[Rfam]
RNA sequence: AUUGACUAUCAAAAACACACUGGGCCUUCUAUAAGACCCUUUUAACAAUUUUUGACAUUCCCAAAGCGAUUUGGGAAA
Numbered sequence: 001a002u003u004g005a006c007u008a009u010c011a012a013a014a015a016c017a018c019a020c021u022g023g024g025c026c027u028u029c030u031a032u033a034a035g036a037c038c039c040u041u042u043u044a045a046c047a048a049u050u051u052u053u054g055a056c057a058u059u060c061c062c063a064a065a066g067c068g069a070u071u072u073g074g075g076a077a078a
Base pairs, nucleotide, nucleotide: 022039023038024037026035027034028033058077059076060075061074062073063072064071065070